[Rfam]
RNA sequence: AGCUAUCAUAUUUAUUAUGCACAAAUAGAUAUGAUAGGUAAAACCACGUGGUAGGGCACAGUUAGGUUCGCUGUGAGUGCAUCCUUUAGUAGCAACUAACCAAAGCAAGUAUAAAUGGGAAAAGCUAUUACCUCGAUAGGCUUAAUGAGGUUCUUGACAGUCUGAUACUAACUGAACAAUAAGUAUCU
Numbered sequence: 001a002g003c004u005a006u007c008a009u010a011u012u013u014a015u016u017a018u019g020c021a022c023a024a025a026u027a028g029a030u031a032u033g034a035u036a037g038g039u040a041a042a043a044c045c046a047c048g049u050g051g052u053a054g055g056g057c058a059c060a061g062u063u064a065g066g067u068u069c070g071c072u073g074u075g076a077g078u079g080c081a082u083c084c085u086u087u088a089g090u091a092g093c094a095a096c097u098a099a100c101c102a103a104a105g106c107a108a109g110u111a112u113a114a115a116u117g118g119g120a121a122a123a124g125c126u127a128u129u130a131c132c133u134c135g136a137u138a139g140g141c142u143u144a145a146u147g148a149g150g151u152u153c154u155u156g157a158c159a160g161u162c163u164g165a166u167a168c169u170a171a172c173u174g175a176a177c178a179a180u181a182a183g184u185a186u187c188u
Stems, first nucleotide, its partner, number of pairs: 002039003005035011053086004057075006100118003106156004130151005164187006
RNA: RAGATH-7 RNA